Shown here is a 66-nucleotide RNA sequence from Bacillus benzoevorans, a member of the family "int-alpA RNA". NCBI's taxonomy places the organism under Bacteria, Bacillota, Bacilli, Caryophanales, Bacillus. Pairs were carried over by alignment from the consensus structure, which is taken from published work. About the family: Acidobacteria (1 example), Planctomycetes (1 example), Proteobacteria. The match comes from Rfam's covariance-model search (45 bits). The family's RNA type in Rfam is small RNA.
[Rfam]
RNA sequence: ACAUGGACUAGCUCGACGGGGCGAAAAGGAAGCACCCACUUCCCUGUCCAUACUUCAUACACGGGG
Numbered sequence: 001a002c003a004u005g006g007a008c009u010a011g012c013u014c015g016a017c018g019g020g021g022c023g024a025a026a027a028g029g030a031a032g033c034a035c036c037c038a039c040u041u042c043c044c045u046g047u048c049c050a051u052a053c054u055u056c057a058u059a060c061a062c063g064g065g066g
Stems, first nucleotide, its partner, number of pairs: 003051006011022004028043005035066003